Rfam assigns this 121-nucleotide sequence from Dendrobium catenatum to the family "U11 spliceosomal RNA". Clan: U1 clan. By type it is a spliceosomal small nuclear RNA. The match comes from Rfam's covariance-model search (40 bits).
Nucleotides: 121
Stems, first nucleotide, its partner, number of pairs: 002075005008022004023046003027042004048069002051066003094118008103110002
Number, partner (000 for none) and nucleotide at each position: 001000u002075g003074u004073c005072g006071g007000u008022u009021g010020g011019c012000u013000a014000u015000g016000u017000a018000u019011g020010c021009c022008a023046c024045g025044c026000a027042c028041a029040u030039c031000u032000u033000u034000u035000a036000a037000u038000u039030g040029a041028u042027g043000g044025g045024c046023g047000c048069u049068g050000c051066a052065u053064g054000g055000u056000u057000a058000u059000c060000a061000a062000a063000a064053u065052a066051u067000a068049u069048g070000a071006c072005c073004g074003a075002c076000g077000u078000a079000a080000u081000u082000u083000a084000u085000g086000g087000a088000u089000u090000u091000u092000a093000u094118a095117g096116g097115g098114u099113u100112g101111g102000u103110u104109u105000g106000c107000u108000c109104g110103g111101c112100u113099a114098a115097c116096c117095c118094u119000c120000a121000u